This 142-nucleotide sequence from Salvia splendens belongs to the Rfam family "Small nucleolar RNA snoR136". Rfam links the family to the GO terms RNA processing and nucleolus.
RNA sequence: GUGCUUUACUUCGAUUUUUUAUGUUUUCACAGAUGAAACAAUAUAAUGUGGCAUUUGUUAUAAGUGAAGCUAUAUGAAUACGUUCUCCUCGCUAUCCGGUGGUGCUUCUGAUAGCUCAUUUGGACGUUGGUGAACUACAUUU
Numbered sequence: 001g002u003g004c005u006u007u008a009c010u011u012c013g014a015u016u017u018u019u020u021a022u023g024u025u026u027u028c029a030c031a032g033a034u035g036a037a038a039c040a041a042u043a044u045a046a047u048g049u050g051g052c053a054u055u056u057g058u059u060a061u062a063a064g065u066g067a068a069g070c071u072a073u074a075u076g077a078a079u080a081c082g083u084u085c086u087c088c089u090c091g092c093u094a095u096c097c098g099g100u101g102g103u104g105c106u107u108c109u110g111a112u113a114g115c116u117c118a119u120u121u122g123g124a125c126g127u128u129g130g131u132g133a134a135c136u137a138c139a140u141u142u
Stems, first nucleotide, its partner, number of pairs: 001073002003070003008065004017060001020057002032055003039050001082135004087130002090126002095124005104115003
The base pairs follow the family's consensus structure, which was predicted with mfold. It is annotated as an H/ACA-box small nucleolar RNA.